[Rfam]
RNA sequence: GAAGAAUCUCCUUUCAUCGUGGUGUUGGUACGUUGAGAAGUCGUCUUGCAUGAGGCGGCGCCGUGCUUGCCGGGCUUUGCAUCCCUAGCCGGUCGAAGGGGCCGCUGGGGUUAAAACUCGCAAGUUCCGGUGACAGAUCGGGGAAAAAAUCUCGGGAGCAUCGAAUUGUUUUCAGGCCCUUUCCUCGGGUGUUCGAAGGCUCUGCGCCGGGCGU
Numbered sequence: 001g002a003a004g005a006a007u008c009u010c011c012u013u014u015c016a017u018c019g020u021g022g023u024g025u026u027g028g029u030a031c032g033u034u035g036a037g038a039a040g041u042c043g044u045c046u047u048g049c050a051u052g053a054g055g056c057g058g059c060g061c062c063g064u065g066c067u068u069g070c071c072g073g074g075c076u077u078u079g080c081a082u083c084c085c086u087a088g089c090c091g092g093u094c095g096a097a098g099g100g101g102c103c104g105c106u107g108g109g110g111u112u113a114a115a116a117c118u119c120g121c122a123a124g125u126u127c128c129g130g131u132g133a134c135a136g137a138u139c140g141g142g143g144a145a146a147a148a149a150u151c152u153c154g155g156g157a158g159c160a161u162c163g164a165a166u167u168g169u170u171u172u173c174a175g176g177c178c179c180u181u182u183c184c185u186c187g188g189g190u191g192u193u194c195g196a197a198g199g200c201u202c203u204g205c206g207c208c209g210g211g212c213g214u
Stems, first nucleotide, its partner, number of pairs: 013037004018032004040212003043056005057208005063202001065200004069131005076124005081112001083110007091103004132193004138188009150176003154173001157170004

The record is a 214-nucleotide RNA from Pseudomonas paraeruginosa, which matches "Pseudomonas sRNA P4" in Rfam. For this family Rfam cites "Identification of 17 Pseudomonas aeruginosa sRNAs and prediction of sRNA-encoding genes in 10 diverse pathogens using the bioinformatic tool sRNAPredict2" (Livny et al., Nucleic Acids Res, 2006). It is annotated as a small RNA. Rfam's curators put it in the seed alignment. The organism belongs to Pseudomonas paraeruginosa, within Bacteria.